[Rfam]
Source information:
The record is a 148-nucleotide RNA sequence from Bacillus sp. HNG, which matches "c-di-AMP riboswitch aptamer (ydaO/yuaA leader)" in Rfam. Taxonomically the source falls in Bacillus (Bacteria, Bacilli, Caryophanales, Bacillaceae). The match comes from Rfam's covariance-model search (53 bits). The base pairs follow the family's consensus structure. The family has 106 seed sequences and 7,607 matches in Rfam 15.1.

RNA sequence: UUUAGAAUAGAGCCUAUUUUUAAGAGCGGGGGACCCAAUGAUUUACACGGAUAUUUCCGUUAUAGGUGAAUUCUUAUAAAGAAGGGGCUCAGUGUUUCCGAUAGUCCUAACCUGAAAGCUAACCUCGUAAGCAAUUUAGUGGAAACGA
Numbered sequence: 001u002u003u004a005g006a007a008u009a010g011a012g013c014c015u016a017u018u019u020u021u022a023a024g025a026g027c028g029g030g031g032g033a034c035c036c037a038a039u040g041a042u043u044u045a046c047a048c049g050g051a052u053a054u055u056u057c058c059g060u061u062a063u064a065g066g067u068g069a070a071u072u073c074u075u076a077u078a079a080a081g082a083a084g085g086g087g088c089u090c091a092g093u094g095u096u097u098c099c100g101a102u103a104g105u106c107c108u109a110a111c112c113u114g115a116a117a118g119c120u121a122a123c124c125u126c127g128u129a130a131g132c133a134a135u136u137u138a139g140u141g142g143a144a145a146c147g148a
Stems, first nucleotide, its partner, number of pairs: 012132002018025002026128006064113003072082004085107004